Description:
The family of this 379-nucleotide RNA from Neobacillus piezotolerans is "Bacterial RNase P class B". Ribonuclease P (RNase P) is a ubiquitous endoribonuclease, found in archaea, bacteria and eukarya as well as chloroplasts and mitochondria. Its best characterised activity is the generation of mature 5'-ends of tRNAs by cleaving the 5'-leader elements of precursor-tRNAs. The base pairs follow the family's consensus structure, which is taken from published work. The source organism's lineage runs through Bacteria, Bacillota, Bacilli, Bacillaceae and Neobacillus. Clan: RNaseP clan. A reference for the family is Brown (1999), "The Ribonuclease P Database", Nucleic Acids Res.

RNA sequence: GCGUUCGGGUAAUCGCUGCAGCACCGUCUGCAGAGGAAAGUCCAUGCUCGCACAGGCUGAGAUGCCUGUAGUGUUCGCGCCUGGCGAAAAAAUAAGCCAGGGCAGCCGGUUUCGGCUGACGGCCGGGAAAAUGCCUAAGUCCAUUGGAUAUGGCAUGAAUACCUGUAAAAGUGCCACAGUGACGUAGCCUUCAAAGAAAUGCGAAGGGUGGAACGAGGUAAACCCCGCGAGCGAGAAACCCAAAUUAUGGUAGGGGCGCUUUCUCCAAGGAAUUCAACGAGGGAGAAGGACAGGCGAACGCCUGUAGAUAGAUGAUUACCGCCUGAGUACGAGACUCACGUCGCUUGCAGUACAAAGGUACAGAACAUGGCUUACAGAA
Numbered sequence: 001g002c003g004u005u006c007g008g009g010u011a012a013u014c015g016c017u018g019c020a021g022c023a024c025c026g027u028c029u030g031c032a033g034a035g036g037a038a039a040g041u042c043c044a045u046g047c048u049c050g051c052a053c054a055g056g057c058u059g060a061g062a063u064g065c066c067u068g069u070a071g072u073g074u075u076c077g078c079g080c081c082u083g084g085c086g087a088a089a090a091a092a093u094a095a096g097c098c099a100g101g102g103c104a105g106c107c108g109g110u111u112u113c114g115g116c117u118g119a120c121g122g123c124c125g126g127g128a129a130a131a132u133g134c135c136u137a138a139g140u141c142c143a144u145u146g147g148a149u150a151u152g153g154c155a156u157g158a159a160u161a162c163c164u165g166u167a168a169a170a171g172u173g174c175c176a177c178a179g180u181g182a183c184g185u186a187g188c189c190u191u192c193a194a195a196g197a198a199a200u201g202c203g204a205a206g207g208g209u210g211g212a213a214c215g216a217g218g219u220a221a222a223c224c225c226c227g228c229g230a231g232c233g234a235g236a237a238a239c240c241c242a243a244a245u246u247a248u249g250g251u252a253g254g255g256g257c258g259c260u261u262u263c264u265c266c267a268a269g270g271a272a273u274u275c276a277a278c279g280a281g282g283g284a285g286a287a288g289g290a291c292a293g294g295c296g297a298a299c300g301c302c303u304g305u306a307g308a309u310a311g312a313u314g315a316u317u318a319c320c321g322c323c324u325g326a327g328u329a330c331g332a333g334a335c336u337c338a339c340g341u342c343g344c345u346u347g348c349a350g351u352a353c354a355a356a357g358g359u360a361c362a363g364a365a366c367a368u369g370g371c372u373u374a375c376a377g378a379a
Stems, first nucleotide, its partner, number of pairs: 004379003007375001008320007016033006038373003042370005047235005052069006075230005080101006102120001103118006121225002124165004132155004139149003171223002173219003188207005195200001239255003259289007290305006322358003327353004